[Rfam]
RNA: nrdJ RNA
Organism: Streptomyces sp. MZ04
RNA sequence: ACCUGUUGCGGGUGACCUUUGCGGAAUCCGCAGCACAAGACACGCACCGUGCCACGGGAAGAACGUGGCACUUCAGGGCGUU
Numbered sequence: 001a002c003c004u005g006u007u008g009c010g011g012g013u014g015a016c017c018u019u020u021g022c023g024g025a026a027u028c029c030g031c032a033g034c035a036c037a038a039g040a041c042a043c044g045c046a047c048c049g050u051g052c053c054a055c056g057g058g059a060a061g062a063a064c065g066u067g068g069c070a071c072u073u074c075a076g077g078g079c080g081u082u
Stems, first nucleotide, its partner, number of pairs: 004035010016023001049071008